Shown here is an 83-nucleotide RNA sequence from Salix purpurea, a member of the family "Small nucleolar RNA R38". Rfam 15.1 lists 2,295 matches to the family in 1,305 species. The family's RNA type in Rfam is C/D-box small nucleolar RNA. Taxonomically the source falls in Salix (Eukaryota, Streptophytina, Tracheophyta, fabids). A reference for the family is Bachellerie et al. (1995), "Antisense snoRNAs: a family of nucleolar RNAs with long complementarities to rRNA", Trends Biochem Sci. snoR38 is a C/D box small nucleolar RNA conserved across yeast, human, Arabidopsis and rice. It is encoded in the intron of elongation factor-1 gamma in both pombe and cerevisiae. snoR38 guides the methylation of 2'-O-ribose sites in 28S rRNA.

[Rfam]
RNA sequence: UUUCGUGUGUGAUGAGAAACAUACAAAAAUUACAGUUAUCCCUGGCUGAUCCAGUGCUGAGAAUUGUUGAUUCUGACACAAAU
Numbered sequence: 001u002u003u004c005g006u007g008u009g010u011g012a013u014g015a016g017a018a019a020c021a022u023a024c025a026a027a028a029a030u031u032a033c034a035g036u037u038a039u040c041c042c043u044g045g046c047u048g049a050u051c052c053a054g055u056g057c058u059g060a061g062a063a064u065u066g067u068u069g070a071u072u073c074u075g076a077c078a079c080a081a082a083u
Base pairs, nucleotide, nucleotide: 002082003081005079006078007077